RNA: Leucine operon leader
Organism: Pluralibacter gergoviae
RNA sequence: AACGGGUUUGAAACAUGAUGCGUACCACCCACUUCACCGGUCUACUACUACUAAACGCUCUUACUGUGCGCGGUAGACUGGUGGGUGACGUUCAGCGUUAAUCGAGCCCUCAGAAAUAAAAAAACCCGCGCCGUGUCGCGGGUUUUUUU
Numbered sequence: 001a002a003c004g005g006g007u008u009u010g011a012a013a014c015a016u017g018a019u020g021c022g023u024a025c026c027a028c029c030c031a032c033u034u035c036a037c038c039g040g041u042c043u044a045c046u047a048c049u050a051c052u053a054a055a056c057g058c059u060c061u062u063a064c065u066g067u068g069c070g071c072g073g074u075a076g077a078c079u080g081g082u083g084g085g086u087g088a089c090g091u092u093c094a095g096c097g098u099u100a101a102u103c104g105a106g107c108c109c110u111c112a113g114a115a116a117u118a119a120a121a122a123a124a125c126c127c128g129c130g131c132c133g134u135g136u137c138g139c140g141g142g143u144u145u146u147u148u149u
Stems, first nucleotide, its partner, number of pairs: 004109001006107005015098003026087008048076005056070003121146010